RNA sequence: ACACGAGAAGGGAGGUGGUUCGGCAGAUGUGUGAGAACCGGACGCGUGAGGUGGCUGCGGGCUAGCGGCCCGUCACCCCACCCAGUGCGGUGCCGGACCAGCGCGCGGCAGAUGCGUGCGACCGGCCCAAUCCCCAGCAGUCACCCGACCCGCGAGCUGCCGGUACGUCCGGCCGGCCUCCCCGCCGUUCAGGCGGAGGGACCCAGCUCGCGGGUCGUCUGCG
Number, nucleotide and partner (000 for none) at each position: 001a000002c000003a000004c000005g000006a000007g000008a000009a000010g000011g000012g000013a000014g000015g058016u057017g056018g055019u054020u000021c000022g000023g000024c000025a000026g000027a000028u000029g000030u000031g000032u000033g000034a000035g000036a000037a000038c000039c000040g000041g000042a000043c000044g000045c000046g000047u000048g000049a000050g000051g000052u000053g000054g019055c018056u017057g016058c015059g000060g127061g126062c125063u124064a000065g122066c000067g000068g119069c118070c000071c116072g115073u114074c000075a000076c000077c000078c000079c000080a000081c000082c000083c000084a000085g000086u000087g000088c000089g000090g000091u000092g000093c000094c000095g000096g000097a000098c000099c000100a000101g000102c000103g000104c000105g000106c000107g000108g000109c000110a000111g000112a000113u000114g073115c072116g071117u000118g069119c068120g000121a000122c065123c000124g063125g062126c061127c060128c000129a000130a000131u000132c000133c000134c000135c000136a000137g000138c000139a000140g000141u000142c000143a000144c000145c000146c217147g216148a215149c214150c213151c212152g211153c210154g209155a208156g207157c206158u205159g177160c176161c175162g174163g173164u172165a000166c000167g000168u000169c000170c000171g000172g164173c163174c162175g161176g160177c159178c000179u000180c000181c000182c000183c000184g000185c000186c000187g000188u000189u000190c000191a000192g000193g000194c000195g000196g000197a000198g000199g000200g000201a000202c000203c000204c000205a158206g157207c156208u155209c154210g153211c152212g151213g150214g149215u148216c147217g146218u000219c000220u000221g000222c000223g000